[Rfam]
RNA sequence: GGUUCGUAGUUGAACAGAGGGCCGUCGAGUGCGCUGUCCGGUCCCGUCCGCGUUCGGACGCGUGACCCCAGCCCUUGCGGCCCGCGAACAUUCGAAACACGAAACACGGGAGCGAUUCCUUCCUGACUCGCGCAUGCCAUGCAUGCCAGGGGGCGUCCGUGAUUUUUACUGUGACUAAAGAAGUGCGACCAAAGCAGUCAUUCGACUUGAAUUAGAAAGCAUGGGAUAACAAGAGACAGCCUUGGGGCUACCGUUUCGGCUUUUGUUGGUUUUAGAGGUCCUUUGGAGAUUAUGGGCCCGGCGCGACGCGGGCGGACCCGUCAAACGGUCCGCGCGCUUCCGCCGCCGCUUCGCGCGGCGCGCGGACUCGCCGGCCCAGGAAUGAAGGAGGGUAGUCGGGGGAGAACGUACUCGAGCGUCAGAGGUGAAAUUCUUAGACCGAUCGAAGACGAACUACAGCGGAGGCAUUCUUCAAGGAUACCUUCCUCAAUCAAGAACCAAAGUGUGGAGAUCGAAGAUGAUUAGAGACCAUUGUAGUCCACACUGCAAACGAU
Numbered sequence: 001g002g003u004u005c006g007u008a009g010u011u012g013a014a015c016a017g018a019g020g021g022c023c024g025u026c027g028a029g030u031g032c033g034c035u036g037u038c039c040g041g042u043c044c045c046g047u048c049c050g051c052g053u054u055c056g057g058a059c060g061c062g063u064g065a066c067c068c069c070a071g072c073c074c075u076u077g078c079g080g081c082c083c084g085c086g087a088a089c090a091u092u093c094g095a096a097a098c099a100c101g102a103a104a105c106a107c108g109g110g111a112g113c114g115a116u117u118c119c120u121u122c123c124u125g126a127c128u129c130g131c132g133c134a135u136g137c138c139a140u141g142c143a144u145g146c147c148a149g150g151g152g153g154c155g156u157c158c159g160u161g162a163u164u165u166u167u168a169c170u171g172u173g174a175c176u177a178a179a180g181a182a183g184u185g186c187g188a189c190c191a192a193a194g195c196a197g198u199c200a201u202u203c204g205a206c207u208u209g210a211a212u213u214a215g216a217a218a219g220c221a222u223g224g225g226a227u228a229a230c231a232a233g234a235g236a237c238a239g240c241c242u243u244g245g246g247g248c249u250a251c252c253g254u255u256u257c258g259g260c261u262u263u264u265g266u267u268g269g270u271u272u273u274a275g276a277g278g279u280c281c282u283u284u285g286g287a288g289a290u291u292a293u294g295g296g297c298c299c300g301g302c303g304c305g306a307c308g309c310g311g312g313c314g315g316a317c318c319c320g321u322c323a324a325a326c327g328g329u330c331c332g333c334g335c336g337c338u339u340c341c342g343c344c345g346c347c348g349c350u351u352c353g354c355g356c357g358g359c360g361c362g363c364g365g366a367c368u369c370g371c372c373g374g375c376c377c378a379g380g381a382a383u384g385a386a387g388g389a390g391g392g393u394a395g396u397c398g399g400g401g402g403a404g405a406a407c408g409u410a411c412u413c414g415a416g417c418g419u420c421a422g423a424g425g426u427g428a429a430a431u432u433c434u435u436a437g438a439c440c441g442a443u444c445g446a447a448g449a450c451g452a453a454c455u456a457c458a459g460c461g462g463a464g465g466c467a468u469u470c471u472u473c474a475a476g477g478a479u480a481c482c483u484u485c486c487u488c489a490a491u492c493a494a495g496a497a498c499c500a501a502a503g504u505g506u507g508g509a510g511a512u513c514g515a516a517g518a519u520g521a522u523u524a525g526a527g528a529c530c531a532u533u534g535u536a537g538u539c540c541a542c543a544c545u546g547c548a549a550a551c552g553a554u
Base pairs, nucleotide, nucleotide: 002498003497004496005495009491010490011489388485389484390483391482393480394479396477397476401473402472403471404470405469406468407451408450412446413445414444415443417441418440422433423432424431459466460465503544504543505542506541507540508539513537517533518532519531520530
Eukaryotic small subunit ribosomal RNA: a 554-nucleotide part of an RNA from Strigomonas culicis. For this family Rfam cites "Crystal structure of the ribosome at 5.5 A resolution" (Yusupov et al., Science, 2001). The family has 90 seed sequences and 75,755 matches in Rfam 15.1. Rfam links the family to the GO terms structural constituent of ribosome and ribosome.